[Rfam]
RNA sequence: AUGCCGUGACGGUUCAUCGUCAUCGGUUCGCUCCCGACGCACAUAUGUCAAUGGCACGCAGGGCGCGAAUCCGGGCGUCGUGACGCUGUCGCAAACCCGGACUCAUUGACGCGGACAUCCGAACGGUCUUCGACCGGACGUGGAUGUCCGCCGAUUUCUUU
Numbered sequence: 001a002u003g004c005c006g007u008g009a010c011g012g013u014u015c016a017u018c019g020u021c022a023u024c025g026g027u028u029c030g031c032u033c034c035c036g037a038c039g040c041a042c043a044u045a046u047g048u049c050a051a052u053g054g055c056a057c058g059c060a061g062g063g064c065g066c067g068a069a070u071c072c073g074g075g076c077g078u079c080g081u082g083a084c085g086c087u088g089u090c091g092c093a094a095a096c097c098c099g100g101a102c103u104c105a106u107u108g109a110c111g112c113g114g115a116c117a118u119c120c121g122a123a124c125g126g127u128c129u130u131c132g133a134c135c136g137g138a139c140g141u142g143g144a145u146g147u148c149c150g151c152c153g154a155u156u157u158c159u160u161u
Base pairs, nucleotide, nucleotide: 005019006018007016008015009013029067030066031065033063034062035061038058039057042053043052044051070101071100072099073098074097075096078094080092081091106154111151112150113149114148115147116146117145118144119143120142121141124140125139127137128136
Shown here is a 161-nucleotide RNA from Burkholderia plantarii, a member of the family "Burkholderia sRNA 35". NCBI's taxonomy places the organism under Bacteria, Pseudomonadati, Pseudomonadota, Burkholderiales, Burkholderia. Pairs were carried over by alignment from the consensus structure, which was predicted with RNAfold. Rfam's curators write: Identified by RNA-seq, RACE and Northern blot. The match comes from Rfam's covariance-model search (79 bits). It is annotated as a small RNA.